This 113-nucleotide RNA sequence from Medicago truncatula belongs to the Rfam family "MIR2593 microRNA precursor family". NCBI's taxonomy places the organism under Eukaryota, Embryophyta, Tracheophyta, Trifolieae, Medicago. The family's consensus secondary structure was predicted with RNAalifold. It scores 103 bits against the family's covariance model. Its family is annotated with RISC complex and miRNA-mediated post-transcriptional gene silencing in the Gene Ontology.
RNA sequence: AUAUAAGUAAAAUUGAUUUUUUAGGUUCAUUCAUUUAAUGAUGUAUGUGGUUAACAAUAUGGACCAUAUACAUCAUUAAAUGAAUGAACCUAAAAAGUCAAUUUUGCUUAUAU
Numbered sequence: 001a002u003a004u005a006a007g008u009a010a011a012a013u014u015g016a017u018u019u020u021u022u023a024g025g026u027u028c029a030u031u032c033a034u035u036u037a038a039u040g041a042u043g044u045a046u047g048u049g050g051u052u053a054a055c056a057a058u059a060u061g062g063a064c065c066a067u068a069u070a071c072a073u074c075a076u077u078a079a080a081u082g083a084a085u086g087a088a089c090c091u092a093a094a095a096a097g098u099c100a101a102u103u104u105u106g107c108u109u110a111u112a113u
Stems, first nucleotide, its partner, number of pairs: 002112006009105004014100011026088018048066004